[Rfam]
RNA sequence: GCCUUCGAGGAGCGUUGCGACGGGUUCUUCCCGCCAGGCUCGAAGGUGGUCAAUUCAAAGGCAUGCGCGUCCCGCGCGGCUUGCACUUUGCAUCGAACGGCGCUCACGUCAA
Numbered sequence: 001g002c003c004u005u006c007g008a009g010g011a012g013c014g015u016u017g018c019g020a021c022g023g024g025u026u027c028u029u030c031c032c033g034c035c036a037g038g039c040u041c042g043a044a045g046g047u048g049g050u051c052a053a054u055u056c057a058a059a060g061g062c063a064u065g066c067g068c069g070u071c072c073c074g075c076g077c078g079g080c081u082u083g084c085a086c087u088u089u090g091c092a093u094c095g096a097a098c099g100g101c102g103c104u105c106a107c108g109u110c111a112a
Base pairs, nucleotide, nucleotide: 002046003045004044005043006042007041008040021033022032023031024030

SAH (S-adenosyl-L-homocysteine) riboswitch aptamer: a 112-nucleotide RNA sequence from Paraburkholderia humisilvae. Its family is annotated with S-adenosylhomocysteine metabolic process and regulation of gene expression in the Gene Ontology. The family's consensus secondary structure is taken from published work.